[Rfam]
Notes
A member of the RNA family "Small nucleolar RNA SNORD66" from Salarias fasciatus, 75 nucleotides long. snoRNA HBII-142 is part of the C/D family of snoRNAs. It is the human orthologue of the mouse MBII-142 snoRNA and is predicted to guide 2'O-ribose methylation of small 18S rRNA at residue C1272. By type it is a C/D-box small nucleolar RNA. It scores 54 bits against the family's covariance model.

RNA sequence: CUCCAGUGAAGACCUCUCGUUAGAACCACGUGUCCAAACAACUGAUAAAAAUGCUGGGAGUGAGGAACAGAGGAG
Numbered sequence: 001c002u003c004c005a006g007u008g009a010a011g012a013c014c015u016c017u018c019g020u021u022a023g024a025a026c027c028a029c030g031u032g033u034c035c036a037a038a039c040a041a042c043u044g045a046u047a048a049a050a051a052u053g054c055u056g057g058g059a060g061u062g063a064g065g066a067a068c069a070g071a072g073g074a075g
Base pairs, nucleotide, nucleotide: 001075002074003073004072
Dot-bracket structure: ((((...................................................................))))